RNA sequence: UCGCUAGUCCGCCAGCCGGUGCAGCCGUGUCGCGGAAGGUUUUUCAACCCACUACAGUGCCGGAAACCGGCGCGAGAGGUGAGCG
Numbered sequence: 001u002c003g004c005u006a007g008u009c010c011g012c013c014a015g016c017c018g019g020u021g022c023a024g025c026c027g028u029g030u031c032g033c034g035g036a037a038g039g040u041u042u043u044u045c046a047a048c049c050c051a052c053u054a055c056a057g058u059g060c061c062g063g064a065a066a067c068c069g070g071c072g073c074g075a076g077a078g079g080u081g082a083g084c085g
Stems, first nucleotide, its partner, number of pairs: 002085003008036005017027004038049004050081004057073007